The record is a 75-nucleotide RNA from Drosophila pseudoobscura, which matches "mir-310 microRNA precursor family" in Rfam. Lineage of the source: Eukaryota > Metazoa > Dicondylia > Eremoneura > Sophophora. It scores 50 bits against the family's covariance model.
[Rfam]
RNA sequence: AUACCUUCAAGCUGGGGGAUGGGCAAUACUGUGUUGUAUUUCAACAGUAUUGCACACCCACUGGCCUGAAAGUGC
Numbered sequence: 001a002u003a004c005c006u007u008c009a010a011g012c013u014g015g016g017g018g019a020u021g022g023g024c025a026a027u028a029c030u031g032u033g034u035u036g037u038a039u040u041u042c043a044a045c046a047g048u049a050u051u052g053c054a055c056a057c058c059c060a061c062u063g064g065c066c067u068g069a070a071a072g073u074g075c
Stems, first nucleotide, its partner, number of pairs: 002074003006070002011065001013063002017059001020056002023053008